[Rfam]
RNA sequence: UAGUAUCUUCAGGGCAGGGUGUAAUUCCCGACCGGCGGUUAAAGUCCGCGAGCUUUAUUUUUAUAUGGCUGAUUUGGUGAAACUCCAAAACCGACAGUAAAGUCUGGAUGAGAGAAGGUAUAG
Number, nucleotide and partner (000 for none) at each position: 001u000002a000003g121004u120005a119006u118007c117008u116009u115010c114011a000012g000013g000014g000015c000016a000017g029018g028019g027020u000021g000022u000023a000024a000025u000026u000027c019028c018029c017030g000031a103032c102033c093034g092035g049036c048037g047038g046039u000040u000041a000042a000043a000044g091045u090046c038047c037048g036049c035050g000051a000052g069053c068054u067055u000056u000057a000058u000059u000060u000061u000062u000063a000064u000065a000066u000067g054068g053069c052070u000071g000072a000073u089074u088075u087076g086077g085078u000079g000080a000081a000082a000083c000084u000085c077086c076087a075088a074089a073090a045091c044092c034093g033094a000095c106096a105097g104098u000099a000100a000101a000102g032103u031104c097105u096106g095107g000108a000109u000110g000111a000112g000113a000114g010115a009116a008117g007118g006119u005120a004121u003122a000123g000
About this RNA: FMN riboswitch aptamer (RFN element): a 123-nucleotide RNA from Clostridium botulinum. Rfam's curators put it in the seed alignment. Pairs were carried over by alignment from the consensus structure, which is taken from published work. Lineage of the source: Bacteria > Bacillati > Clostridia > Eubacteriales > Clostridium botulinum C.